[Rfam]
RNA sequence: AAAAGAAAGCAGAAGCGCCCGCUUCUCACCUCGUCUGACAAAUCUGUUGGCAGGUUGACAUGGUAAAUGACAAAGCUAUUUAAAAGCUUUUUACUGGCGGGGCAUCUACUUUAGAUGCCUCGCCUUUUUCAUGCA
Numbered sequence: 001a002a003a004a005g006a007a008a009g010c011a012g013a014a015g016c017g018c019c020c021g022c023u024u025c026u027c028a029c030c031u032c033g034u035c036u037g038a039c040a041a042a043u044c045u046g047u048u049g050g051c052a053g054g055u056u057g058a059c060a061u062g063g064u065a066a067a068u069g070a071c072a073a074a075g076c077u078a079u080u081u082a083a084a085a086g087c088u089u090u091u092u093a094c095u096g097g098c099g100g101g102g103c104a105u106c107u108a109c110u111u112u113a114g115a116u117g118c119c120u121c122g123c124c125u126u127u128u129u130c131a132u133g134c135a
Stems, first nucleotide, its partner, number of pairs: 011026006028055003035050005097123012